RNA: Plastid-ycf2 5UTR RNA
RNA sequence: UUGCAUCCAGUAGGAAUUGAACCUACGUCGCCGAUUAUGAGUUGGAAGCUUUUAACCAUUCAGCCAUGGAUGC
Numbered sequence: 001u002u003g004c005a006u007c008c009a010g011u012a013g014g015a016a017u018u019g020a021a022c023c024u025a026c027g028u029c030g031c032c033g034a035u036u037a038u039g040a041g042u043u044g045g046a047a048g049c050u051u052u053u054a055a056c057c058a059u060u061c062a063g064c065c066a067u068g069g070a071u072g073c
Stems, first nucleotide, its partner, number of pairs: 003073006010026005037067003041064006048057001
Dot-bracket structure: ..((((((.(((((.......)))))..........(((.((((((.(........).)))))))))))))))